The family of this 144-nucleotide sequence from Neotoma lepida is "Small nucleolar RNA SNORA12".
RNA sequence: UCUGGUGGUAGCGUCUUUCUGGCACAUUUGUUGAGUGUUCAAAUGGGCCUGACUCUGCCACAUACAUUAUGCAGGAGCCAGCAAAGUCUUGAGACAAAAAGUCUCUCUUGAGAGUUUCCUGAUGACAGAUUGGCUCCCAUAAGU
Dot-bracket structure: ....(((((((.........(((.((((((.........)))))).))).....)))))))............((((((((......))..............(((.(................).)))..)))))).......
Annotation
Lineage of the source: Eukaryota > Gnathostomata > Theria > Eutheria > Neotoma. From the family's description: U108 belongs to the H/ACA family of snoRNAs. The sequence is predicted to guide the pseudouridylation of the U372 residue in the 28S rRNA subunit. However it has not been reported as a pseudouridylation site. The match comes from Rfam's covariance-model search (125 bits). It is annotated as an H/ACA-box small nucleolar RNA. Gene Ontology terms of the family: RNA processing and nucleolus.